[Rfam]
RNA: Singlet oxygen resistance RNA X
Organism: Thalassococcus halodurans
RNA sequence: UCCCUUCGCAUGUGAGGGUCAUCACAUGCACCCCUCCCUGUUGGACUGACCCGGGCAAGCCCCGGGUCUUUUUU
Numbered sequence: 001u002c003c004c005u006u007c008g009c010a011u012g013u014g015a016g017g018g019u020c021a022u023c024a025c026a027u028g029c030a031c032c033c034c035u036c037c038c039u040g041u042u043g044g045a046c047u048g049a050c051c052c053g054g055g056c057a058a059g060c061c062c063c064g065g066g067u068c069u070u071u072u073u074u
Stems, first nucleotide, its partner, number of pairs: 008029007048068008